Group I catalytic intron: a 337-nucleotide RNA sequence from Rhizoctonia solani. From the family's description: Group I catalytic introns are large self-splicing ribozymes. For this family Rfam cites "Self-splicing of group I introns" (Cech, Annu Rev Biochem, 1990).

[Rfam]
RNA sequence: GUUAAGAGGUCAUCUGAAAGGAUUUAUGACCUAGUGAGCGUUGAGGCUUGCGACACUGUCAAAUUGCGGGGACGUCCUAAAGCUUUUGCGACCAAGCAUUUGUGGAAACACAAGUGUGGCCGAGUUAAUAGCCCUGGGUAUGGUAAAACUGCAAAAGAUGUUACAAUGGAUAAUCCGCAGCCAAGUCCUAAGGGCCCCUGGUAAUAAAUAUUGAGUUUAUUUCCAAGAGUCUAUGGAUGCAGUUCACAGACUAAAUGGCAGUGGGUGUGUAUUGAGUUGGGAUUUAUUCUGGCUCUACAUGCUUAAGAUAUAGUCGGUCCUGCCGCGAAAGCGGACU
Numbered sequence: 001g002u003u004a005a006g007a008g009g010u011c012a013u014c015u016g017a018a019a020g021g022a023u024u025u026a027u028g029a030c031c032u033a034g035u036g037a038g039c040g041u042u043g044a045g046g047c048u049u050g051c052g053a054c055a056c057u058g059u060c061a062a063a064u065u066g067c068g069g070g071g072a073c074g075u076c077c078u079a080a081a082g083c084u085u086u087u088g089c090g091a092c093c094a095a096g097c098a099u100u101u102g103u104g105g106a107a108a109c110a111c112a113a114g115u116g117u118g119g120c121c122g123a124g125u126u127a128a129u130a131g132c133c134c135u136g137g138g139u140a141u142g143g144u145a146a147a148a149c150u151g152c153a154a155a156a157g158a159u160g161u162u163a164c165a166a167u168g169g170a171u172a173a174u175c176c177g178c179a180g181c182c183a184a185g186u187c188c189u190a191a192g193g194g195c196c197c198c199u200g201g202u203a204a205u206a207a208a209u210a211u212u213g214a215g216u217u218u219a220u221u222u223c224c225a226a227g228a229g230u231c232u233a234u235g236g237a238u239g240c241a242g243u244u245c246a247c248a249g250a251c252u253a254a255a256u257g258g259c260a261g262u263g264g265g266u267g268u269g270u271a272u273u274g275a276g277u278u279g280g281g282a283u284u285u286a287u288u289c290u291g292g293c294u295c296u297a298c299a300u301g302c303u304u305a306a307g308a309u310a311u312a313g314u315c316g317g318u319c320c321u322g323c324c325g326c327g328a329a330a331g332c333g334g335a336c337u
Stems, first nucleotide, its partner, number of pairs: 005015003054263005060257002065179006075170003180243002185238004193231003197227001247316001249315005265302007323334004